[Rfam]
RNA sequence: GAGGCCGGAGGUCAACGCCCGACAGCGCGUCCGCGCCCUCGGGCGUGUUCUG
Numbered sequence: 001g002a003g004g005c006c007g008g009a010g011g012u013c014a015a016c017g018c019c020c021g022a023c024a025g026c027g028c029g030u031c032c033g034c035g036c037c038c039u040c041g042g043g044c045g046u047g048u049u050c051u052g
Stems, first nucleotide, its partner, number of pairs: 016045007025036004
The record is a 52-nucleotide RNA sequence from Methylobacterium durans, which matches "ffh sRNA" in Rfam.
For this family Rfam cites "Identification of candidate structured RNAs in the marine organism 'Candidatus Pelagibacter ubique'" (Meyer et al., BMC Genomics, 2009).
The family's consensus secondary structure is taken from published work.